Purine riboswitch aptamer: a 102-nucleotide RNA sequence from Bacillus methanolicus.
The family's consensus secondary structure is taken from published work.
RNA sequence: AUAAAUUAAGCGUUAACCCCUCGUAUAAUCAUGGGAAUAUGGCCCAUAAGUCUCUACCCGGCAACCGUAAAUUGCCGGACUAUGAGGGAAAGUUGAUAUGGC
Numbered sequence: 001a002u003a004a005a006u007u008a009a010g011c012g013u014u015a016a017c018c019c020c021u022c023g024u025a026u027a028a029u030c031a032u033g034g035g036a037a038u039a040u041g042g043c044c045c046a047u048a049a050g051u052c053u054c055u056a057c058c059c060g061g062c063a064a065c066c067g068u069a070a071a072u073u074g075c076c077g078g079a080c081u082a083u084g085a086g087g088g089a090a091a092g093u094u095g096a097u098a099u100g101g102c
Stems, first nucleotide, its partner, number of pairs: 018088008029049001031047005058078007
The match comes from Rfam's covariance-model search (95 bits).